The record is a 69-nucleotide RNA sequence from Salvelinus namaycush, which matches "miR-430 microRNA precursor family" in Rfam. On this family, see Giraldez et al., Science 2005: "MicroRNAs regulate brain morphogenesis in zebrafish". The source organism's lineage runs through Eukaryota, Metazoa, Osteoglossocephalai, Salmoniformes and Salvelinus. Clan: mir-290 clan. Gene Ontology terms of the family: RISC complex and miRNA-mediated post-transcriptional gene silencing.
[Rfam]
RNA sequence: ACAGCAACCCUAACAAAAGCAUUGACUGGUUUCUUUUUGCAGUAAGAGCUUUUUGUUGGGAUAUCUGUU
Numbered sequence: 001a002c003a004g005c006a007a008c009c010c011u012a013a014c015a016a017a018a019g020c021a022u023u024g025a026c027u028g029g030u031u032u033c034u035u036u037u038u039g040c041a042g043u044a045a046g047a048g049c050u051u052u053u054u055g056u057u058g059g060g061a062u063a064u065c066u067g068u069u
Stems, first nucleotide, its partner, number of pairs: 004065001007062001009060003013056005018050003022046002025043003
Dot-bracket structure: ...(..(.(((.((((((((.((.(((.............))).)).))).))))).))).)..)....